The record is a 358-nucleotide sequence from Lynx canadensis, which matches "Bag-1 internal ribosome entry site (IRES)" in Rfam. Rfam links the family to the GO term ribosome binding. Taxonomically the source falls in Lynx (Eukaryota, Opisthokonta, Sarcopterygii, Boreoeutheria). Rfam describes the family as follows. This family represents the bag-1 internal ribosome entry site (IRES).
RNA sequence: UGGGUGGUCAACUAGCGCGGGUCUGGCGGAGCGCGGUGGCGCGCGGAGACCGCGAGGCGACCGGGAGCGGCUGGGUCCCCGGCGGCGCGCCCCUCGGCCGGGCCGGGAGCCGCGCCAGUCGGUGCCCCCGGCCGAGCGCGGUCUGCCUCCCUCUCAGCGAUCAUCCGUCCGGAGUGCGGCCCGCGGGCAUGCGGGAUCCACCAGGGGCGCCGCCACCGGCGCUCGCAGGCCGCGGGUGAAGAAAGUGCGGACUCGCUCGACCCGGAGCGAAGAGGUGACCCGAAGCGAAGAGGUGGCCGGGAGUGAGGUGGCCGGGAGUGAGGUGGCCGGGAGUGAGGUGGCCGGGAGCGAGGAAAUG
Numbered sequence: 001u002g003g004g005u006g007g008u009c010a011a012c013u014a015g016c017g018c019g020g021g022u023c024u025g026g027c028g029g030a031g032c033g034c035g036g037u038g039g040c041g042c043g044c045g046g047a048g049a050c051c052g053c054g055a056g057g058c059g060a061c062c063g064g065g066a067g068c069g070g071c072u073g074g075g076u077c078c079c080c081g082g083c084g085g086c087g088c089g090c091c092c093c094u095c096g097g098c099c100g101g102g103c104c105g106g107g108a109g110c111c112g113c114g115c116c117a118g119u120c121g122g123u124g125c126c127c128c129c130g131g132c133c134g135a136g137c138g139c140g141g142u143c144u145g146c147c148u149c150c151c152u153c154u155c156a157g158c159g160a161u162c163a164u165c166c167g168u169c170c171g172g173a174g175u176g177c178g179g180c181c182c183g184c185g186g187g188c189a190u191g192c193g194g195g196a197u198c199c200a201c202c203a204g205g206g207g208c209g210c211c212g213c214c215a216c217c218g219g220c221g222c223u224c225g226c227a228g229g230c231c232g233c234g235g236g237u238g239a240a241g242a243a244a245g246u247g248c249g250g251a252c253u254c255g256c257u258c259g260a261c262c263c264g265g266a267g268c269g270a271a272g273a274g275g276u277g278a279c280c281c282g283a284a285g286c287g288a289a290g291a292g293g294u295g296g297c298c299g300g301g302a303g304u305g306a307g308g309u310g311g312c313c314g315g316g317a318g319u320g321a322g323g324u325g326g327c328c329g330g331g332a333g334u335g336a337g338g339u340g341g342c343c344g345g346g347a348g349c350g351a352g353g354a355a356a357u358g
Base pairs, nucleotide, nucleotide: 020104021103022102023101024100025099026098027097038093039092041090042089043053044052045051046050061082062081063080064079065078067076068075145342146341147340149338150337167188168187169186170185171184205224206223207222208221209220210219211218212217254269255268256267257266258265
The match comes from Rfam's covariance-model search (307 bits).